This 129-nucleotide RNA sequence from Tupaia belangeri belongs to the Rfam family "Small nucleolar RNA SNORA11".
Rfam links the family to the GO terms RNA processing and nucleolus.
Lineage of the source: Eukaryota > Gnathostomata > Euteleostomi > Boreoeutheria > Tupaia.
Rfam's curators write: U107 (SNORA11) is a member of the H/ACA class of snoRNAs that guide the sites of modification of uridines to pseudouridines. This snoRNA was identified by RT-PCR from blood cells and its expression confirmed by Northern blot analysis. There is no predicted target for this guide snRNA.
A reference for the family is Gu et al. (2005), "A novel experimental approach for systematic identification of box H/ACA snoRNAs from eukaryotes", Nucleic Acids Res.
By type it is an H/ACA-box small nucleolar RNA.
RNA sequence: GGGGUGUGCUCAGAGCAGGGGACCUCAAGAAUGGGUCCUCUGUUUAUAACACACCCAACAGAAAUCUGGGAUCAUGAUGUUAAGGGACACAAAACUUGUAGCCUCCCUAUGAACAAAUACCAUACAAGU
Numbered sequence: 001g002g003g004g005u006g007u008g009c010u011c012a013g014a015g016c017a018g019g020g021g022a023c024c025u026c027a028a029g030a031a032u033g034g035g036u037c038c039u040c041u042g043u044u045u046a047u048a049a050c051a052c053a054c055c056c057a058a059c060a061g062a063a064a065u066c067u068g069g070g071a072u073c074a075u076g077a078u079g080u081u082a083a084g085g086g087a088c089a090c091a092a093a094a095c096u097u098g099u100a101g102c103c104u105c106c107c108u109a110u111g112a113a114c115a116a117a118u119a120c121c122a123u124a125c126a127a128g129u
Stems, first nucleotide, its partner, number of pairs: 002056007013045009023034002070121001072119001078113001081111002084104003089099004